[Rfam]
RNA sequence: UAAGUUUAAGGCCAUAGCGGAAGUGCUCACAGCACAGCCAUGUCAGAGUCCAACAAAUCUGAGAAUUCUGCU
Numbered sequence: 001u002a003a004g005u006u007u008a009a010g011g012c013c014a015u016a017g018c019g020g021a022a023g024u025g026c027u028c029a030c031a032g033c034a035c036a037g038c039c040a041u042g043u044c045a046g047a048g049u050c051c052a053a054c055a056a057a058u059c060u061g062a063g064a065a066u067u068c069u070g071c072u
Base pairs, nucleotide, nucleotide: 010039011038012037016072017071018070019069020068021067022066023035024034025033044061045060046059047058049056
RNA: Mammalian CPEB3 ribozyme